RNA sequence: AUUCUCCGAUCUUUGGUGAUUCAGCUUAAAUGAUAGAAUUCAGACGUCUUCAUAAAGCUAGGUUACCAAAGCUCGGCGUUC
Numbered sequence: 001a002u003u004c005u006c007c008g009a010u011c012u013u014u015g016g017u018g019a020u021u022c023a024g025c026u027u028a029a030a031u032g033a034u035a036g037a038a039u040u041c042a043g044a045c046g047u048c049u050u051c052a053u054a055a056a057g058c059u060a061g062g063u064u065a066c067c068a069a070a071g072c073u074c075g076g077c078g079u080u081c
Stems, first nucleotide, its partner, number of pairs: 004078001007075003011071011023059004030053004
Shown here is an 81-nucleotide RNA sequence from Caenorhabditis briggsae, a member of the family "mir-9/mir-79 microRNA precursor family". Its family is annotated with miRNA-mediated post-transcriptional gene silencing and RISC complex in the Gene Ontology. Rfam 15.1 lists 5,647 matches to the family in 934 species. The family's consensus secondary structure was predicted with RNAalifold.